[Rfam]
RNA sequence: UUCACACAUGAUGAUCGAUUUGGGACUUAAUUCUGAAAGUCUGAUGUCACUUUUAUAGAUCUGAUGUGU
Numbered sequence: 001u002u003c004a005c006a007c008a009u010g011a012u013g014a015u016c017g018a019u020u021u022g023g024g025a026c027u028u029a030a031u032u033c034u035g036a037a038a039g040u041c042u043g044a045u046g047u048c049a050c051u052u053u054u055a056u057a058g059a060u061c062u063g064a065u066g067u068g069u
Stems, first nucleotide, its partner, number of pairs: 003068004
RNA: Small nucleolar RNA SNORD82